Small nucleolar RNA Z103: a 97-nucleotide RNA sequence from Trifolium pratense.
[Rfam]
RNA sequence: AUGGAUAUGAUGAUAAUUUCCCCAGAUGAUCGAAGCUGAAAUAUCUGUGCGAAUUUUGUUUCUCAUUAGAGAAAUCAAGCCAAAUAAUCUGAUCCAU
Numbered sequence: 001a002u003g004g005a006u007a008u009g010a011u012g013a014u015a016a017u018u019u020c021c022c023c024a025g026a027u028g029a030u031c032g033a034a035g036c037u038g039a040a041a042u043a044u045c046u047g048u049g050c051g052a053a054u055u056u057u058g059u060u061u062c063u064c065a066u067u068a069g070a071g072a073a074a075u076c077a078a079g080c081c082a083a084a085u086a087a088u089c090u091g092a093u094c095c096a097u
Base pairs, nucleotide, nucleotide: 001097002096003095004094005093

The literature on the family includes a 2003 paper in Nucleic Acids Res by Chen et al., "The high diversity of snoRNAs in plants: identification and comparative study of 120 snoRNA genes from Oryza sativa". A search with the family's covariance model found it, with a score of 88 bits. The source organism's lineage runs through Eukaryota, Spermatophyta, Papilionoideae, Trifolieae and Trifolium.